[Rfam]
RNA sequence: UAAAACCUUUUGCUGAAUCCACUAUGUGGAGCGGGGGACCCAUUUUUGUAGCAUUUGCUACUUGGGGCGAAUCUUUUUAAGUAGGGAAACUCUCACUUCCCGAGUCCGACAGCUAACCUCGUAAGCGUAAUGGGAGAGGGA
Number, nucleotide and partner (000 for none) at each position: 001u000002a000003a000004a000005a000006c000007c000008u000009u000010u000011u127012g126013c125014u124015g000016a000017a000018u030019c029020c028021a000022c000023u000024a000025u000026g000027u000028g020029g019030a018031g122032c121033g120034g119035g118036g117037g000038a000039c000040c000041c064042a063043u000044u000045u000046u000047u000048g000049u000050a000051g000052c000053a000054u000055u000056u000057g000058c000059u000060a000061c000062u000063u042064g041065g107066g106067g105068c000069g000070a000071a000072u000073c081074u080075u079076u000077u000078u000079a075080a074081g073082u000083a000084g101085g100086g099087a098088a000089a000090c000091u000092c000093u000094c000095a000096c000097u000098u087099c086100c085101c084102g000103a000104g000105u067106c066107c065108g000109a000110c000111a000112g000113c000114u000115a000116a000117c036118c035119u034120c033121g032122u031123a000124a014125g013126c012127g011128u000129a000130a000131u000132g000133g000134g000135a000136g000137a000138g000139g000140g000141a000
Record summary: Shown here is a 141-nucleotide RNA sequence from Bacillus cytotoxicus, a member of the family "c-di-AMP riboswitch aptamer (ydaO/yuaA leader)". NCBI's taxonomy places the organism under Bacteria, Bacillota, Caryophanales, Bacillus, Bacillus cytotoxicus.